Rfam assigns this 69-nucleotide RNA sequence from Macrophomina phaseolina to the family "bZIP non canonical Hac1/Xbp1 intron". It scores 59 bits against the family's covariance model. bZIP intron RNA is a non-canonical intron that was first reported in HAC1 gene in yeast and XBP1 gene in Metazoa. Rfam classes the family as a small RNA. The family has 112 seed sequences and 1,325 matches in Rfam 15.1. On this family, see Hooks and Griffiths-Jones, RNA Biol 2011: "Conserved RNA structures in the non-canonical Hac1/Xbp1 intron".
RNA sequence: GUUGAGCCCGACCAGACACAACAUUCUGCAGCAAUGUUGUGCGACCUGCAGUGUCGGUCGGAGCUCAAC
Numbered sequence: 001g002u003u004g005a006g007c008c009c010g011a012c013c014a015g016a017c018a019c020a021a022c023a024u025u026c027u028g029c030a031g032c033a034a035u036g037u038u039g040u041g042c043g044a045c046c047u048g049c050a051g052u053g054u055c056g057g058u059c060g061g062a063g064c065u066c067a068a069c
Stems, first nucleotide, its partner, number of pairs: 001069006008061005020038006043055003